[Rfam]
RNA sequence: CGACGCGGCGAAGCGCGACAUCAACUACUUAAAGAACCAGGAGAAACAACCCCACCCCACCCGCCCCGGCCUCUACCCGACGGGCCCCAGGGGCUCGUCACCCACACGGGUGAGGUUUGCCAACUCAGCUGGAUUUCGAGCCGGUUGGCGGGCAUAUGCUCACGCCAGCACCAACACCAGACACCGGACAUACGUCGGCCCCCGACCGGGACUGCAAUCCCGAACGAGGGCCUGACCACCAAGGAAGAAGAGACCUUCCCG
Numbered sequence: 001c002g003a004c005g006c007g008g009c010g011a012a013g014c015g016c017g018a019c020a021u022c023a024a025c026u027a028c029u030u031a032a033a034g035a036a037c038c039a040g041g042a043g044a045a046a047c048a049a050c051c052c053c054a055c056c057c058c059a060c061c062c063g064c065c066c067c068g069g070c071c072u073c074u075a076c077c078c079g080a081c082g083g084g085c086c087c088c089a090g091g092g093g094c095u096c097g098u099c100a101c102c103c104a105c106a107c108g109g110g111u112g113a114g115g116u117u118u119g120c121c122a123a124c125u126c127a128g129c130u131g132g133a134u135u136u137c138g139a140g141c142c143g144g145u146u147g148g149c150g151g152g153c154a155u156a157u158g159c160u161c162a163c164g165c166c167a168g169c170a171c172c173a174a175c176a177c178c179a180g181a182c183a184c185c186g187g188a189c190a191u192a193c194g195u196c197g198g199c200c201c202c203c204g205a206c207c208g209g210g211a212c213u214g215c216a217a218u219c220c221c222g223a224a225c226g227a228g229g230g231c232c233u234g235a236c237c238a239c240c241a242a243g244g245a246a247g248a249a250g251a252g253a254c255c256u257u258c259c260c261g
Stems, first nucleotide, its partner, number of pairs: 007240002010237001017085001019083001098113006128169002130162003197232005203226002208221004243259005
Notes
Shown here is a 261-nucleotide sequence from Streptomyces sp. WZ.A104, a member of the family "Streptomyces sRNA 4677". Rfam's curators write: Located in the intergenic region between anti-sigma factor SCO4677 gene and a putative regulatory protein gene SCO4676. scr4677 expression requires the SCO4677 activity and scr4677 sRNA itself seem to affect the levels of the SCO4676-associated transcripts. It is annotated as a small RNA. For this family Rfam cites "Complex intra-operonic dynamics mediated by a small RNA in Streptomyces coelicolor" (Hindra et al., PLoS One, 2014).